The record is a 48-nucleotide RNA sequence from Carnobacterium maltaromaticum, which matches "uup RNA" in Rfam.
Rfam's curators put it in the seed alignment.

RNA sequence: CGAGACUUAGCUCCCUACAACUUGAUUUGAUGAAGCGUUGUAUGGAGC
Number, nucleotide and partner (000 for none) at each position: 001c000002g000003a000004g000005a000006c000007u000008u000009a000010g000011c047012u046013c045014c044015c000016u000017a041018c040019a039020a000021c000022u000023u000024g000025a000026u000027u000028u000029g000030a000031u000032g000033a000034a000035g000036c000037g000038u000039u019040g018041u017042a000043u000044g014045g013046a012047g011048c000